[Rfam]
RNA sequence: CGAAGCCGCGCGGGAGAGUUCGAACCCUUACCUGGGUUCGGCGCCGAAGGAGCAAGUCCUCCCCGGAACCUCUCAGGCACCUGGACCGCGCGGACGAG
Numbered sequence: 001c002g003a004a005g006c007c008g009c010g011c012g013g014g015a016g017a018g019u020u021c022g023a024a025c026c027c028u029u030a031c032c033u034g035g036g037u038u039c040g041g042c043g044c045c046g047a048a049g050g051a052g053c054a055a056g057u058c059c060u061c062c063c064c065g066g067a068a069c070c071u072c073u074c075a076g077g078c079a080c081c082u083g084g085a086c087c088g089c090g091c092g093g094a095c096g097a098g
Base pairs, nucleotide, nucleotide: 006093007092008091009090010089011088012087013086020041021040022039023038024037025036026035043078044077045076046074047073050072051071052070
This 98-nucleotide RNA sequence from Amycolatopsis taiwanensis belongs to the Rfam family "Glycine riboswitch aptamer". From the family's description: This family represents the bacterial glycine riboswitch. Glycine riboswitches usually consist of two metabolite-binding aptamers domains with similar structures in tandem. The aptamers cooperatively bind glycine to regulate the expression of downstream genes. In Bacillus subtilis, this riboswitch is found upstream of the gcvT operon which controls glycine degradation.